[Rfam]
A member of the RNA family "Bacterial RNase P class A" from [Clostridium] leptum, 348 nucleotides long.
Ribonuclease P (RNase P) is a ubiquitous endoribonuclease, found in archaea, bacteria and eukarya as well as chloroplasts and mitochondria.
Pairs were carried over by alignment from the consensus structure, which is taken from published work.
The source organism's lineage runs through Bacteria, Bacillati, Bacillota, Oscillospiraceae and [Clostridium] leptum.
The sequence is in the family's curated seed alignment.

RNA sequence: UGAGCAGGCUGAACAGCCGCGGGCGAUAGCCGAAAGGCUCCGCCUGAGGAAAGUCCGAGCUCCACAGGGCAGGAAUAGCGGUUAACGGCCGCCGGGGGCGACCCUAGGGAUAGUGCAACAGAAAGUUACCGCCGGCUUUGCCGGUAAGGGUGGAAAGGCGAGGUAAGAGCUCACCAGCGCGCAGGAGACUGCGCGGCUGUGUAAACCCUAUUCGGAGCAACACCGCAGAGGAACGUAUCGCGCCGGCCCGGCGUGUUCCGAGAAGGUGGCGUCGAGCCGUGAUGGCAACAUCCGGCCAAGAUAGAUGGCUGUUCACGACAGAACUCGGCUUAUAGGCCUGGUCAUAAC
Dot-bracket structure: (((.((((((((((((((.((((((..(((......))).))))))....[[[.[[[[[((((...[[[[..((((((((((.....)))))(((((....)))).)((...(((((...........((((((((...))))))..)).......((.(((.......))).)).((((((((....))))))).)..)))..)))))))))))))...((((.....((((((.....((((.]]]])))))))))).....)))).......((((.((((....))))))))..........)))))))..........]]]]]]]].).)))))).)))....